[Rfam]
RNA sequence: AUGCCUUAAACUGAUGAGUAAGGAAAAUAACGACGCGGGGUGACGCCCGUGUCCUCGUUUACAUUACGAGAAGAAUUUUUGAAGGGUCAAAGGUCUGCCUGCUGAGGUGACUCGCUUACUUCGCGAGAUGCCUCGUGGGACCAGGACCUUCCCC
Numbered sequence: 001a002u003g004c005c006u007u008a009a010a011c012u013g014a015u016g017a018g019u020a021a022g023g024a025a026a027a028u029a030a031c032g033a034c035g036c037g038g039g040g041u042g043a044c045g046c047c048c049g050u051g052u053c054c055u056c057g058u059u060u061a062c063a064u065u066a067c068g069a070g071a072a073g074a075a076u077u078u079u080u081g082a083a084g085g086g087u088c089a090a091a092g093g094u095c096u097g098c099c100u101g102c103u104g105a106g107g108u109g110a111c112u113c114g115c116u117u118a119c120u121u122c123g124c125g126a127g128a129u130g131c132c133u134c135g136u137g138g139g140a141c142c143a144g145g146a147c148c149u150u151c152c153c154c
Base pairs, nucleotide, nucleotide: 004023005022006021007020008019032053033052034051035050036049037048038047039046054070055069056068057067058066084154085153086152091149092148093147094146095145096144100137101136105133106132107131108130109129111127112126113125114124115123
Dot-bracket structure: ...(((((..........)))))........((((((((......))))))))(((((.......))))).............(((....((((((...((...(((((.(((((.......))))).)))))..))......))))))..)))
Rfam assigns this 154-nucleotide RNA from Labrus bergylta to the family "U12 minor spliceosomal RNA".
By type it is a spliceosomal small nuclear RNA.
Gene Ontology terms of the family: mRNA branch site recognition, pre-mRNA branch point binding and U12 snRNP.
A reference for the family is Otake et al. (2002), "The divergent U12-type spliceosome is required for pre-mRNA splicing and is essential for development in Drosophila", Mol Cell.
It scores 125 bits against the family's covariance model.
The family is grouped with related families in Rfam's "U2 clan".